[Rfam]
RNA: FMN riboswitch aptamer (RFN element)
Organism: Cetobacterium ceti
RNA sequence: UAUGAACUUCAGGGCAGGGUGAAAUUCCCGACCGGCGGUAAUAGUCCGCGAAGCCUUUGGCUUGAUCUGGUGAAACUCCAGAACCGACAGUAUAGUCUGGAUGGAAGAAGUGUUUU
Numbered sequence: 001u002a003u004g005a006a007c008u009u010c011a012g013g014g015c016a017g018g019g020u021g022a023a024a025u026u027c028c029c030g031a032c033c034g035g036c037g038g039u040a041a042u043a044g045u046c047c048g049c050g051a052a053g054c055c056u057u058u059g060g061c062u063u064g065a066u067c068u069g070g071u072g073a074a075a076c077u078c079c080a081g082a083a084c085c086g087a088c089a090g091u092a093u094a095g096u097c098u099g100g101a102u103g104g105a106a107g108a109a110g111u112g113u114u115u116u
Stems, first nucleotide, its partner, number of pairs: 004113001006111005017029003031096002033086002035049004044084002052062003066082005088099003